[Rfam]
RNA sequence: GAGUCCCCCUUUGAAGGGGGAAAGACACACAAAGUGUGUCAGGGGGAUGAC
Numbered sequence: 001g002a003g004u005c006c007c008c009c010u011u012u013g014a015a016g017g018g019g020g021a022a023a024g025a026c027a028c029a030c031a032a033a034g035u036g037u038g039u040c041a042g043g044g045g046g047a048u049g050a051c
Stems, first nucleotide, its partner, number of pairs: 004021007024040007